Overview: The record is a 441-nucleotide part of an RNA from Brevundimonas sp. Leaf363, which matches "Bacterial large subunit ribosomal RNA" in Rfam. The family's consensus secondary structure is taken from published work. On this family, see Cannone et al., BMC Bioinformatics 2002: "The comparative RNA web (CRW) site: an online database of comparative sequence and structure information for ribosomal, intron, and other RNAs".
[Rfam]
RNA sequence: CUCCGCGAAAUCUAUUUAGGUAGAGCGUCCGACGAACUCCUUGGGGGGUAGAGCACUGGAUGGUUGCGGGCUGCGCGAGCGGUACCAAUACUAACCAAACUCCGAAUACCCAAGAGAGCUAUCGGGCAGACACACGGCGGGUGCUAACGUCCGUCGUGAAAAGGGAAACAACCCUAACCAUCAUCUAAGGCCCCCAAGUCACGGCUAAGUGGGAAACGAUGUGGGAUUGCUUUGACAAUCAGGAGGUUGGCUUAGAAGCAGCCAUCCUUUAAAGAAAGCGUAACAGCUCACUGAUCAAGCGAUCCUGCGCGGAAAAUGUAACGGGGCUCAAGCCGUGCGCCGAAGAUAUGGGUUUGCAGUUUACUGCAAGCGGUAGCGGAGCGUUCCGUAAGCCGGUGAAGGUCAGGCGUGAGCCUGGCUGGAGGUAUCGGAAGUGAGAAU
Numbered sequence: 001c002u003c004c005g006c007g008a009a010a011u012c013u014a015u016u017u018a019g020g021u022a023g024a025g026c027g028u029c030c031g032a033c034g035a036a037c038u039c040c041u042u043g044g045g046g047g048g049u050a051g052a053g054c055a056c057u058g059g060a061u062g063g064u065u066g067c068g069g070g071c072u073g074c075g076c077g078a079g080c081g082g083u084a085c086c087a088a089u090a091c092u093a094a095c096c097a098a099a100c101u102c103c104g105a106a107u108a109c110c111c112a113a114g115a116g117a118g119c120u121a122u123c124g125g126g127c128a129g130a131c132a133c134a135c136g137g138c139g140g141g142u143g144c145u146a147a148c149g150u151c152c153g154u155c156g157u158g159a160a161a162a163g164g165g166a167a168a169c170a171a172c173c174c175u176a177a178c179c180a181u182c183a184u185c186u187a188a189g190g191c192c193c194c195c196a197a198g199u200c201a202c203g204g205c206u207a208a209g210u211g212g213g214a215a216a217c218g219a220u221g222u223g224g225g226a227u228u229g230c231u232u233u234g235a236c237a238a239u240c241a242g243g244a245g246g247u248u249g250g251c252u253u254a255g256a257a258g259c260a261g262c263c264a265u266c267c268u269u270u271a272a273a274g275a276a277a278g279c280g281u282a283a284c285a286g287c288u289c290a291c292u293g294a295u296c297a298a299g300c301g302a303u304c305c306u307g308c309g310c311g312g313a314a315a316a317u318g319u320a321a322c323g324g325g326g327c328u329c330a331a332g333c334c335g336u337g338c339g340c341c342g343a344a345g346a347u348a349u350g351g352g353u354u355u356g357c358a359g360u361u362u363a364c365u366g367c368a369a370g371c372g373g374u375a376g377c378g379g380a381g382c383g384u385u386c387c388g389u390a391a392g393c394c395g396g397u398g399a400a401g402g403u404c405a406g407g408c409g410u411g412a413g414c415c416u417g418g419c420u421g422g423a424g425g426u427a428u429c430g431g432a433a434g435u436g437a438g439a440a441u
Stems, first nucleotide, its partner, number of pairs: 001381006011024005026129001027127006036120001038116001040114006051103001052101002057097003061093004068086002070083005133158010163174003178351004183347003189341003198338001200337006217311002221308010238295005244268003249263003269273001274289001278287002352371008382436001384433005392426003401420008